[Rfam]
RNA sequence: AGCUUUGCACAGUGGCAGUAUCGUAGCCAAUGAGGUUUAUCCAAGGCUUGAUUACUGCUAAUUGAAACUUUUCCCAAUACCCCACCAUGACGACUUGAAAUAUAGUUGGUGUUGGCAAUUUUUGGCAGUGUCUACAGAGA
Numbered sequence: 001a002g003c004u005u006u007g008c009a010c011a012g013u014g015g016c017a018g019u020a021u022c023g024u025a026g027c028c029a030a031u032g033a034g035g036u037u038u039a040u041c042c043a044a045g046g047c048u049u050g051a052u053u054a055c056u057g058c059u060a061a062u063u064g065a066a067a068c069u070u071u072u073c074c075c076a077a078u079a080c081c082c083c084a085c086c087a088u089g090a091c092g093a094c095u096u097g098a099a100a101u102a103u104a105g106u107u108g109g110u111g112u113u114g115g116c117a118a119u120u121u122u123u124g125g126c127a128g129u130g131u132c133u134a135c136a137g138a139g140a
Stems, first nucleotide, its partner, number of pairs: 020052004026047003034042002085115002087112003091108005129140001131138002
This 140-nucleotide RNA from Sapajus apella belongs to the Rfam family "U4 spliceosomal RNA". Its Rfam clan is "U4 clan". Rfam's curators write: U4 small nuclear RNA (U4 snRNA) is a component of the major U2-dependent spliceosome. Taxonomically the source falls in Sapajus (Eukaryota, Opisthokonta, Chordata, Euarchontoglires). The family's consensus secondary structure is taken from published work. By type it is a spliceosomal small nuclear RNA.